Small nucleolar RNA SNORD77: a 66-nucleotide sequence from Otolemur garnettii. The family has 21 seed sequences and 396 matches in Rfam 15.1. The base pairs follow the family's consensus structure, which was predicted with RNAalifold. Gene Ontology terms of the family: RNA processing and nucleolus. From the family's description: U77 belongs to the C/D family of snoRNAs. It is predicted to guide 2'O-ribose methylation of large 28S rRNA subunit at position A1521. The literature on the family includes a 2004 paper in Curr Biol by Tycowski et al., "Guide RNAs with 5' caps and novel box C/D snoRNA-like domains for modification of snRNAs in metazoa".
RNA sequence: AUACUAUUACGGUUGCAUAGUUAAGCAGAUUGAAUCAUGUAAUUAACCAUUUGCCCUUAUGUAUCU
Numbered sequence: 001a002u003a004c005u006a007u008u009a010c011g012g013u014u015g016c017a018u019a020g021u022u023a024a025g026c027a028g029a030u031u032g033a034a035u036c037a038u039g040u041a042a043u044u045a046a047c048c049a050u051u052u053g054c055c056c057u058u059a060u061g062u063a064u065c066u
Stems, first nucleotide, its partner, number of pairs: 001064004006038002009035001013028004041052002044049001